[Rfam]
RNA sequence: UCUUCAUUUUGCACACUCUCUCGCCUGCUCGAUCGCCGAGAGAGUGUGUGAAAUGAAGAGA
Numbered sequence: 001u002c003u004u005c006a007u008u009u010u011g012c013a014c015a016c017u018c019u020c021u022c023g024c025c026u027g028c029u030c031g032a033u034c035g036c037c038g039a040g041a042g043a044g045u046g047u048g049u050g051a052a053a054u055g056a057a058g059a060g061a
Base pairs, nucleotide, nucleotide: 001059002058003057004056005055006054007053010050012048013047014046015045016044017043019041020040021039022038

The family of this 61-nucleotide sequence from Pristionchus pacificus is "mir-8364 microRNA precursor family". A search with the family's covariance model found it, with a score of 72 bits. NCBI's taxonomy places the organism under Eukaryota, Eumetazoa, Diplogasteromorpha, Diplogasteroidea, Pristionchus. The base pairs follow the family's consensus structure, which was predicted with RNAalifold.